[Rfam]
RNA sequence: GGACGAGCCUCUGGAGAGUCUCCCCUUCCCAGUGGGGAGCACCGAAGGAGCAAGCCGCAUCCCAGUUAGCGGUGAAACUCUCAGGUAAAAGGACAGAGUGGACCAU
Number, nucleotide and partner (000 for none) at each position: 001g000002g000003a000004c000005g000006a000007g000008c000009c098010u097011c096012u095013g094014g000015a000016g000017a000018g000019u000020c039021u038022c037023c036024c000025c000026u000027u000028c000029c000030c000031a000032g000033u000034g000035g000036g023037g022038a021039g020040c000041a086042c085043c084044g082045a081046a000047g000048g080049a079050g078051c000052a000053a000054g073055c072056c071057g070058c069059a000060u000061c000062c000063c000064a000065g000066u000067u000068a000069g058070c057071g056072g055073u054074g000075a000076a000077a000078c050079u049080c048081u045082c044083a000084g043085g042086u041087a000088a000089a000090a000091g000092g000093a000094c013095a012096g011097a010098g009099u000100g000101g000102a000103c000104c000105a000106u000
The record is a 106-nucleotide RNA from Desulfovibrio psychrotolerans, which matches "Glycine riboswitch aptamer" in Rfam. Rfam links the family to the GO term glycine biosynthetic process. The organism belongs to Desulfovibrio, within Bacteria.